[Rfam]
RNA sequence: GCCGAGCUCGGUAGCGAGAGCCUGUAACCCAAGCGGGGGCAUUAAGGUGGCUGUGGAUGUUUUGGUGUGGAUACUGAUCCUGGGCCCCAUGUUGUGUGUAAUCUUCCAAGUUGCGUAGUGGGCCGGAUGGGCUUUGGCGAAGGCCAAAUUCUCCGGCCCUAAAGUGGCAGGCAACAGCGUGAGGCUGGCUUCACAGAGCAGCGAUCACUGCCCGCUUCCAUCGGGUGGAAGGAUAACAGGCUGCUGCACCUUGGGCCCGCUUCUGGCCCAGAGUCCCUCUACAACAGACCACCAUCUUU
Numbered sequence: 001g002c003c004g005a006g007c008u009c010g011g012u013a014g015c016g017a018g019a020g021c022c023u024g025u026a027a028c029c030c031a032a033g034c035g036g037g038g039g040c041a042u043u044a045a046g047g048u049g050g051c052u053g054u055g056g057a058u059g060u061u062u063u064g065g066u067g068u069g070g071a072u073a074c075u076g077a078u079c080c081u082g083g084g085c086c087c088c089a090u091g092u093u094g095u096g097u098g099u100a101a102u103c104u105u106c107c108a109a110g111u112u113g114c115g116u117a118g119u120g121g122g123c124c125g126g127a128u129g130g131g132c133u134u135u136g137g138c139g140a141a142g143g144c145c146a147a148a149u150u151c152u153c154c155g156g157c158c159c160u161a162a163a164g165u166g167g168c169a170g171g172c173a174a175c176a177g178c179g180u181g182a183g184g185c186u187g188g189c190u191u192c193a194c195a196g197a198g199c200a201g202c203g204a205u206c207a208c209u210g211c212c213c214g215c216u217u218c219c220a221u222c223g224g225g226u227g228g229a230a231g232g233a234u235a236a237c238a239g240g241c242u243g244c245u246g247c248a249c250c251u252u253g254g255g256c257c258c259g260c261u262u263c264u265g266g267c268c269c270a271g272a273g274u275c276c277c278u279c280u281a282c283a284a285c286a287g288a289c290c291a292c293c294a295u296c297u298u299u
Stems, first nucleotide, its partner, number of pairs: 001040003004023001006021004028037003044298007053289001058286002061283001063281001065279001067277001069275002072273001074271003079266002082258006089251001091250001094249003098244003102232007110222001112220002115218001117216003121158007130151002133148006159164001166212005176205001178203003185196003
Plant signal recognition particle RNA: a 299-nucleotide RNA from Oryza glumipatula. The family has 63 seed sequences and 4,988 matches in Rfam 15.1. Lineage of the source: Eukaryota > Euphyllophyta > Poales > Oryzoideae > Oryza. The literature on the family includes a 2002 paper in Curr Opin Struct Biol by Wild et al., "Towards the structure of the mammalian signal recognition particle". Pairs were carried over by alignment from the consensus structure, which is taken from published work. A search with the family's covariance model found it, with a score of 161 bits.